[Rfam]
RNA sequence: UGGCGCCUGAACAGGGACCUGGACAUGGGGGAAAAAGUGAGGAAGAAGGCACUAAAGUCGGCCGAAAGUGAAAGUGGAAGAAAUUCCUCCAGACGUCGCGGGAACCUGCCGCAUUGGAACCAGAGGUGAGUAACAGUGUCUGAUCAUGGGACAAGAAUUGAGCCAACAUCAGAUUUAUGUAGGGUGGUUAAAAGAGGCCCUAAAAGCACGAGGAGUAAAGGUUAAAAGUAAUGAUUUGUUUAAAUUUUUUUGAUUUUGUAAAAGAAACCUGCCCUU
Numbered sequence: 001u002g003g004c005g006c007c008u009g010a011a012c013a014g015g016g017a018c019c020u021g022g023a024c025a026u027g028g029g030g031g032a033a034a035a036a037g038u039g040a041g042g043a044a045g046a047a048g049g050c051a052c053u054a055a056a057g058u059c060g061g062c063c064g065a066a067a068g069u070g071a072a073a074g075u076g077g078a079a080g081a082a083a084u085u086c087c088u089c090c091a092g093a094c095g096u097c098g099c100g101g102g103a104a105c106c107u108g109c110c111g112c113a114u115u116g117g118a119a120c121c122a123g124a125g126g127u128g129a130g131u132a133a134c135a136g137u138g139u140c141u142g143a144u145c146a147u148g149g150g151a152c153a154a155g156a157a158u159u160g161a162g163c164c165a166a167c168a169u170c171a172g173a174u175u176u177a178u179g180u181a182g183g184g185u186g187g188u189u190a191a192a193a194g195a196g197g198c199c200c201u202a203a204a205a206g207c208a209c210g211a212g213g214a215g216u217a218a219a220g221g222u223u224a225a226a227a228g229u230a231a232u233g234a235u236u237u238g239u240u241u242a243a244a245u246u247u248u249u250u251u252g253a254u255u256u257u258g259u260a261a262a263a264g265a266a267a268c269c270u271g272c273c274c275u276u
Base pairs, nucleotide, nucleotide: 006031007030008029013026015024038046084128086126088123094116098112099111100110101109136152137151139150140149141148142147159202160201162198163197164196209252210251211250212249213247214246215245216244219237220236221235222234223233224232261276262275264273
A member of the RNA family "Mason-Pfizer monkey virus packaging signal" from Rhinopithecus roxellana, 276 nucleotides long. About the family: This family represents a group of sequences that are related to the Mason-Pfizer monkey virus (MPMV) packaging signal. The packaging signal is located in the 5' UTR and is required for specific RNA encapsidation. By type it is a cis-regulatory element. It scores 184 bits against the family's covariance model. Gene Ontology term of the family: viral genome packaging.